A member of the RNA family "Nuclear RNase P" from Sula dactylatra, 345 nucleotides long.

RNA sequence: UCCGGGGGAAGCUCACCGCCGAGGCCACCCACGGGGUGCGCGUCACCCACGCCCCGCCUCGGGGAAGGUCUGAGGGAAGGGCCGCCCGCGGCUCCAGCAGAGCCCCGCCCGCGAGUGGGCGGGUGAGCCACCAGCAAGGGGGGGCGCUGCGCUCGGGUCGGUCCUGGGCAGGAGAAACCGAGCAGGUUCCGCGCGUGGGACGCGAACCCCCACGCGUGUGGAAACCCCGGUGGAUGCCCGUGGCCCCGCGGUGCUUUGAGACAGACUCACGGCCGGCGAUUGUUGAGUCCAAUGGGUGAGGUGGGGCAGCGCCCCACAACCCAAUUCAGACUACUCUCCCCCGGA
Numbered sequence: 001u002c003c004g005g006g007g008g009a010a011g012c013u014c015a016c017c018g019c020c021g022a023g024g025c026c027a028c029c030c031a032c033g034g035g036g037u038g039c040g041c042g043u044c045a046c047c048c049a050c051g052c053c054c055c056g057c058c059u060c061g062g063g064g065a066a067g068g069u070c071u072g073a074g075g076g077a078a079g080g081g082c083c084g085c086c087c088g089c090g091g092c093u094c095c096a097g098c099a100g101a102g103c104c105c106c107g108c109c110c111g112c113g114a115g116u117g118g119g120c121g122g123g124u125g126a127g128c129c130a131c132c133a134g135c136a137a138g139g140g141g142g143g144g145c146g147c148u149g150c151g152c153u154c155g156g157g158u159c160g161g162u163c164c165u166g167g168g169c170a171g172g173a174g175a176a177a178c179c180g181a182g183c184a185g186g187u188u189c190c191g192c193g194c195g196u197g198g199g200a201c202g203c204g205a206a207c208c209c210c211c212a213c214g215c216g217u218g219u220g221g222a223a224a225c226c227c228c229g230g231u232g233g234a235u236g237c238c239c240g241u242g243g244c245c246c247c248g249c250g251g252u253g254c255u256u257u258g259a260g261a262c263a264g265a266c267u268c269a270c271g272g273c274c275g276g277c278g279a280u281u282g283u284u285g286a287g288u289c290c291a292a293u294g295g296g297u298g299a300g301g302u303g304g305g306g307c308a309g310c311g312c313c314c315c316a317c318a319a320c321c322c323a324a325u326u327c328a329g330a331c332u333a334c335u336c337u338c339c340c341c342c343g344g345a
Base pairs, nucleotide, nucleotide: 001345002344003343004342007339008338009337012300013299014298015297016296017295020061021060022059023058024057034048035047036046037045038044070329071328072327073326074325080274081273082272083271090104091103092102093101094100105122106121107120108119109118110117123270124269125268126267127266129264143255144254145253146252147251148250149249150248151247301317302316303315304314305313306312307311
Background:
It is annotated as a ribozyme.